[Rfam]
Description:
This 147-nucleotide RNA sequence from Acidomonas methanolica belongs to the Rfam family "radC RNA". The family has 148 seed sequences and 500 matches in Rfam 15.1. It is annotated as a cis-regulatory element.
RNA sequence: ACCCUCCCAUCAUGCCCGCUGAUCGUGAUCAGCAGCAUGCCCAGGCAGCCCCGAUCCUGAAGGCUGCGGCGCGGUUCCGACCGCGUUGAUCAUCCCGGUUCGCACCGGCAUCCAUGCGCGAACGGCCGUCAUUCAUGACGGUGAUGC
Dot-bracket structure: ..........((((...((((((....))))))..)))).....((((((..[[[[.....))))))(((((((......)))))))]]]]..........................(((....(((((((....)))))))..)))